[Rfam]
Shown here is a 109-nucleotide sequence from Texcoconibacillus texcoconensis, a member of the family "SAM riboswitch aptamer (S box leader)". Taxonomically the source falls in Texcoconibacillus (Bacteria, Bacillati, Bacillota, Caryophanales).

RNA sequence: CUCUUAUCAAGAGAGGCGGAGGGACUGGCCCGAAGAUGCCCGGCAACCAACAAGUGGAAGACAUUCGUCAGGUGCUAAAUCCAGCAGAGUUUACUCUGAGAGAUGAGAG
Numbered sequence: 001c002u003c004u005u006a007u008c009a010a011g012a013g014a015g016g017c018g019g020a021g022g023g024a025c026u027g028g029c030c031c032g033a034a035g036a037u038g039c040c041c042g043g044c045a046a047c048c049a050a051c052a053a054g055u056g057g058a059a060g061a062c063a064u065u066c067g068u069c070a071g072g073u074g075c076u077a078a079a080u081c082c083a084g085c086a087g088a089g090u091u092u093a094c095u096c097u098g099a100g101a102g103a104u105g106a107g108a109g
Base pairs, nucleotide, nucleotide: 001109002108003107004106005105006104007103008102013041015040016039017038021031022030023029025084026083027082028081042076043075044074045073047072048071049068052065080101085098086097087096088095089094